A member of the RNA family "Group II catalytic intron D1-D4-5" from Clostridium sp. BL8, 199 nucleotides long.
[Rfam]
RNA sequence: AAGAACUGAUAACUUGAAAAGUCAAAUGAAAGGGUAACGCCUUGAAGGGCUUCUCUAAUACUCCGAAUAGCGAAGCUAGCAGUAAGAACGGCUUUGUUAUAAGCUCGGUGAAGUCGGCUGAGGUUAUCUCCUAACAGGUUAAGCUGAGGAACUGCGAACUAGAGGUAGUCGAGGAUAAUAUAGGCCGGGAGUCCAUAAA
Numbered sequence: 001a002a003g004a005a006c007u008g009a010u011a012a013c014u015u016g017a018a019a020a021g022u023c024a025a026a027u028g029a030a031a032g033g034g035u036a037a038c039g040c041c042u043u044g045a046a047g048g049g050c051u052u053c054u055c056u057a058a059u060a061c062u063c064c065g066a067a068u069a070g071c072g073a074a075g076c077u078a079g080c081a082g083u084a085a086g087a088a089c090g091g092c093u094u095u096g097u098u099a100u101a102a103g104c105u106c107g108g109u110g111a112a113g114u115c116g117g118c119u120g121a122g123g124u125u126a127u128c129u130c131c132u133a134a135c136a137g138g139u140u141a142a143g144c145u146g147a148g149g150a151a152c153u154g155c156g157a158a159c160u161a162g163a164g165g166u167a168g169u170c171g172a173g174g175a176u177a178a179u180a181u182a183g184g185c186c187g188g189g190a191g192u193c194c195a196u197a198a199a
Stems, first nucleotide, its partner, number of pairs: 019052005031043004053191004063108004067100011115187005124178006130149003137145002153172001155171002158169004
Rfam describes the family as follows. Group II introns are found in rRNA, tRNA and mRNA of organelles in fungi, plants and protists, and also in mRNA in bacteria. A reference for the family is Bonen and Vogel (2001), "The ins and outs of group II introns", Trends Genet. The source organism's lineage runs through Bacteria, Bacillati, Clostridia, Eubacteriales and Clostridium.